RNA sequence: GCUAUGGGGACUGCGAUCUCCCCACGAGGCGACAUGCCGAAGAAUCGCGUCCGACUCCAACCAACGGACGCACCAUG
Numbered sequence: 001g002c003u004a005u006g007g008g009g010a011c012u013g014c015g016a017u018c019u020c021c022c023c024a025c026g027a028g029g030c031g032a033c034a035u036g037c038c039g040a041a042g043a044a045u046c047g048c049g050u051c052c053g054a055c056u057c058c059a060a061c062c063a064a065c066g067g068a069c070g071c072a073c074c075a076u077g
Base pairs, nucleotide, nucleotide: 005024006023007022008021009020010019047071048070049069050068051067052066
RNA: chrB-a RNA